[Rfam]
RNA sequence: UGCUGCAACUUCUAUCCUUACCUCCUCGUGGUACUGGUCAGGUACACAACCCCGGUGGGAACUUUGGUCGUAUGCUGACAGGGAAGG
Dot-bracket structure: ..........(((.((((.(((.......)))..........((.((.(((..............))).)).)).....)))).)))